[Rfam]
RNA sequence: GGACAGUGAUGAUCCUUAUCAAUGGUCUCGUUCGUCGUAAUGGCUCUUUAAAGGCCUUGCCGACCAUCCUGAUAUAUCACCACCCAUAUUCUGAGUCC
Numbered sequence: 001g002g003a004c005a006g007u008g009a010u011g012a013u014c015c016u017u018a019u020c021a022a023u024g025g026u027c028u029c030g031u032u033c034g035u036c037g038u039a040a041u042g043g044c045u046c047u048u049u050a051a052a053g054g055c056c057u058u059g060c061c062g063a064c065c066a067u068c069c070u071g072a073u074a075u076a077u078c079a080c081c082a083c084c085c086a087u088a089u090u091c092u093g094a095g096u097c098c
Stems, first nucleotide, its partner, number of pairs: 001098004045053001

The family of this 98-nucleotide sequence from Salix dunnii is "Small nucleolar RNA Z43".
By type it is a C/D-box small nucleolar RNA.
NCBI's taxonomy places the organism under Eukaryota, Euphyllophyta, eudicotyledons, Saliceae, Salix.
A search with the family's covariance model found it, with a score of 100 bits.
Rfam links the family to the GO terms nucleolus and RNA processing.
For this family Rfam cites "The high diversity of snoRNAs in plants: identification and comparative study of 120 snoRNA genes from Oryza sativa" (Chen et al., Nucleic Acids Res, 2003).
The base pairs follow the family's consensus structure, which was predicted with PFOLD.